[Rfam]
RNA sequence: GCGGCGUGCGGGCUCCGUUCGCUGGAGAAGCUUGCUGCGGACCAGCGCCACGUGCUUCCCCGUCUAACGGCGGCAACCGCGUUGC
Numbered sequence: 001g002c003g004g005c006g007u008g009c010g011g012g013c014u015c016c017g018u019u020c021g022c023u024g025g026a027g028a029a030g031c032u033u034g035c036u037g038c039g040g041a042c043c044a045g046c047g048c049c050a051c052g053u054g055c056u057u058c059c060c061c062g063u064c065u066a067a068c069g070g071c072g073g074c075a076a077c078c079g080c081g082u083u084g085c
Base pairs, nucleotide, nucleotide: 001085002084003083004082005081006080007079008078012074013073014072015070016069017068018067019066021064023062024061025060027058028057029056030055031054033052034051037048038047039046